[Rfam]
RNA sequence: UUGCUUCAGCUGGUCCAGUGGAACCAAGUCGACCUUUCUUGGGAUUUGGUCCCCUUCAACCAGCUGUGGCGU
Numbered sequence: 001u002u003g004c005u006u007c008a009g010c011u012g013g014u015c016c017a018g019u020g021g022a023a024c025c026a027a028g029u030c031g032a033c034c035u036u037u038c039u040u041g042g043g044a045u046u047u048g049g050u051c052c053c054c055u056u057c058a059a060c061c062a063g064c065u066g067u068g069g070c071g072u
Base pairs, nucleotide, nucleotide: 003070004069005068008065009064010063011062012061013060014059017056018055020052021051022050024049025048026047027046028045029044030043

A member of the RNA family "mir-133 microRNA precursor family" from Eptatretus burgeri, 72 nucleotides long. The source organism's lineage runs through Eukaryota, Opisthokonta, Craniata, Cyclostomata and Eptatretus. The family's consensus secondary structure was predicted with PFOLD. For this family Rfam cites "Identification of tissue-specific microRNAs from mouse" (Lagos-Quintana et al., Curr Biol, 2002). Its family is annotated with miRNA-mediated post-transcriptional gene silencing and RISC complex in the Gene Ontology. Rfam describes the family as follows. mir-133 was first experimentally characterised in mouse and homologues have since been discovered in several other species. The mature sequence is excised from the 3' arm of the hairpin. Rfam 15.1 lists 3,763 matches to the family in 801 species.